A member of the RNA family "Mammalian CPEB3 ribozyme" from Alligator sinensis, 75 nucleotides long. The mammalian CPEB3 ribozyme is a self cleaving RNA located in the second intron of the CPEB3 gene which belongs to a family of genes regulating messenger RNA polyadenylation.

RNA sequence: UCAGAUGUUUGAGACCAUAGCAGAAGUGCUCAUGAUGUAGCCCUAUCAGAUUCCAAUGAGUCUGCAAAUUUUGCU
Numbered sequence: 001u002c003a004g005a006u007g008u009u010u011g012a013g014a015c016c017a018u019a020g021c022a023g024a025a026g027u028g029c030u031c032a033u034g035a036u037g038u039a040g041c042c043c044u045a046u047c048a049g050a051u052u053c054c055a056a057u058g059a060g061u062c063u064g065c066a067a068a069u070u071u072u073g074c075u
Stems, first nucleotide, its partner, number of pairs: 011043001013042001015040001019075007026038003047064007